[Rfam]
RNA sequence: UAUUAGGUUGGUGCGAAAGUAAUUGCCGUUUUGCCAUUGAACGUAAUGGCAAAACGGCAAUUACUUUUGCACCAACCUAAUA
Numbered sequence: 001u002a003u004u005a006g007g008u009u010g011g012u013g014c015g016a017a018a019g020u021a022a023u024u025g026c027c028g029u030u031u032u033g034c035c036a037u038u039g040a041a042c043g044u045a046a047u048g049g050c051a052a053a054a055c056g057g058c059a060a061u062u063a064c065u066u067u068u069g070c071a072c073c074a075a076c077c078u079a080a081u082a
Stems, first nucleotide, its partner, number of pairs: 001082039